[Rfam]
A member of the RNA family "TPP riboswitch aptamer (THI element)" from Hathewaya histolytica, 108 nucleotides long. Pairs were carried over by alignment from the consensus structure, which is taken from published work.
RNA sequence: AAUAUUUGCUAGGGGAGCUUAUAUAAUAGGCUGAGAGUGAAAUGUUAUUUCAGACCCUCAUAACCUGAUUUAGAUAAUACUAGCGCAGGGAAGUACUUAAAUUAAAAA
Numbered sequence: 001a002a003u004a005u006u007u008g009c010u011a012g013g014g015g016a017g018c019u020u021a022u023a024u025a026a027u028a029g030g031c032u033g034a035g036a037g038u039g040a041a042a043u044g045u046u047a048u049u050u051c052a053g054a055c056c057c058u059c060a061u062a063a064c065c066u067g068a069u070u071u072a073g074a075u076a077a078u079a080c081u082a083g084c085g086c087a088g089g090g091a092a093g094u095a096c097u098u099a100a101a102u103u104a105a106a107a108a
Base pairs, nucleotide, nucleotide: 007095008094009093010092011058012057013056014055017031018030019029020028021027038052039051040050041049042048064089065088066087067086070083071082072081073080
Dot-bracket structure: ......((((((((..(((((.....)))))......(((((.....)))))..)))).....((((..((((......))))..))))..)))).............